[Rfam]
RNA: Betaproteobacteria toxic small RNA
Organism: Paraburkholderia steynii
RNA sequence: CGUCUCCUCCAUGUCUCCUCCUGAUAUGGAUUACCGGUCCCGCCUGCUCACAGGCGGGAUUUUUUUU
Numbered sequence: 001c002g003u004c005u006c007c008u009c010c011a012u013g014u015c016u017c018c019u020c021c022u023g024a025u026a027u028g029g030a031u032u033a034c035c036g037g038u039c040c041c042g043c044c045u046g047c048u049c050a051c052a053g054g055c056g057g058g059a060u061u062u063u064u065u066u067u
Stems, first nucleotide, its partner, number of pairs: 008030008037060008